A member of the RNA family "purD RNA motif" from Halarcobacter anaerophilus, 115 nucleotides long. Pairs were carried over by alignment from the consensus structure, which is taken from published work. By type it is a cis-regulatory element. The source organism's lineage runs through Bacteria, Pseudomonadati, Campylobacterales, Arcobacteraceae and Halarcobacter. Its family is annotated with regulation of gene expression in the Gene Ontology.

RNA sequence: GUAAUUUAUGCGGUGUGAAGCGUUUACAAUUUUUGUAUUUCUGCUCCUAAAGCAUAAUUCUUACCUGCUAUCGUUGGCUUUUAGGGCCAUUUUGAUGGUUAACGACUACUUGGAU
Numbered sequence: 001g002u003a004a005u006u007u008a009u010g011c012g013g014u015g016u017g018a019a020g021c022g023u024u025u026a027c028a029a030u031u032u033u034u035g036u037a038u039u040u041c042u043g044c045u046c047c048u049a050a051a052g053c054a055u056a057a058u059u060c061u062u063a064c065c066u067g068c069u070a071u072c073g074u075u076g077g078c079u080u081u082u083a084g085g086g087c088c089a090u091u092u093u094g095a096u097g098g099u100u101a102a103c104g105a106c107u108a109c110u111u112g113g114a115u
Stems, first nucleotide, its partner, number of pairs: 003059002007056005019045004025037005075089006